[Rfam]
RNA: FMN riboswitch aptamer (RFN element)
Organism: Lachnospiraceae bacterium M18-1
RNA sequence: UGAAUUCUUCGGGGUCGGGUGCAAUUCCCAACCGGCGGUAUAGUCCGCGACCCGCUUCGGCGGCUGAACUGGUGACUCUCAUAUACAGAGGGGAUUCCAGUACCGACAGUAAAGUCUGGAUGAGAGAAGAAAUUU
Numbered sequence: 001u002g003a004a005u006u007c008u009u010c011g012g013g014g015u016c017g018g019g020u021g022c023a024a025u026u027c028c029c030a031a032c033c034g035g036c037g038g039u040a041u042a043g044u045c046c047g048c049g050a051c052c053c054g055c056u057u058c059g060g061c062g063g064c065u066g067a068a069c070u071g072g073u074g075a076c077u078c079u080c081a082u083a084u085a086c087a088g089a090g091g092g093g094a095u096u097c098c099a100g101u102a103c104c105g106a107c108a109g110u111a112a113a114g115u116c117u118g119g120a121u122g123a124g125a126g127a128a129g130a131a132a133u134u135u
Stems, first nucleotide, its partner, number of pairs: 003133001005131006017029003031115002033105002035048004043103002052063002068101005107118003